skipping-rope RNA: a 79-nucleotide RNA sequence. The family's RNA type in Rfam is small RNA. Rfam's curators put it in the seed alignment. The base pairs follow the family's consensus structure, which is taken from published work.
RNA sequence: AUAUAUUGAGGUGAGCAACAGUUCUCACGCACCUUAUGGGUUAAAAGAGAUGUAGGUACAGCUGGACCUACCAAUAUAU
Numbered sequence: 001a002u003a004u005a006u007u008g009a010g011g012u013g014a015g016c017a018a019c020a021g022u023u024c025u026c027a028c029g030c031a032c033c034u035u036a037u038g039g040g041u042u043a044a045a046a047g048a049g050a051u052g053u054a055g056g057u058a059c060a061g062c063u064g065g066a067c068c069u070a071c072c073a074a075u076a077u078a079u
Stems, first nucleotide, its partner, number of pairs: 001079008011028005019064004030047001031041004052071005